Shown here is a 146-nucleotide RNA from Trichoderma atroviride, a member of the family "Small nucleolar RNA snR80". Rfam classes the family as an H/ACA-box small nucleolar RNA. Pairs were carried over by alignment from the consensus structure, which was predicted with WAR. NCBI's taxonomy places the organism under Eukaryota, saccharomyceta, Sordariomycetes, Hypocreomycetidae, Trichoderma atroviride. Rfam 15.1 lists 447 matches to the family in 358 species. On this family, see Schattner et al., Nucleic Acids Res 2004: "Genome-wide searching for pseudouridylation guide snoRNAs: analysis of the Saccharomyces cerevisiae genome".
Nucleotides: 146
Base pairs, nucleotide, nucleotide: 007066008065009064020052021051022050023049024048026046027045028044029043080141081140082139083138093125094124098120099119100118101117102116103115
Number, partner (000 for none) and nucleotide at each position: 001000g002000c003000c004000c005000c006000c007066c008065u009064u010000a011000g012000c013000u014000c015000a016000c017000u018000c019000c020052g021051a022050g023049a024048u025000a026046c027045a028044u029043c030000g031000u032000c033000a034000c035000u036000g037000c038000u039000c040000u041000g042000u043029g044028g045027u046026g047000u048024a049023u050022u051021u052020c053000u054000a055000u056000u057000u058000u059000u060000g061000c062000u063000c064009a065008a066007g067000g068000a069000a070000g071000a072000u073000u074000g075000a076000a077000a078000c079000a080141g081140g082139c083138c084000a085000c086000u087000u088000a089000c090000u091000c092000a093125c094124c095000u096000c097000u098120a099119u100118a101117c102116c103115c104000u105000g106000u107000u108000u109000u110000u111000c112000c113000g114000u115103g116102g117101g118100u119099a120098u121000a122000u123000u124094g125093g126000u127000c128000c129000u130000a131000c132000c133000a134000a135000u136000a137000a138083g139082g140081c141080c142000a143000a144000c145000a146000u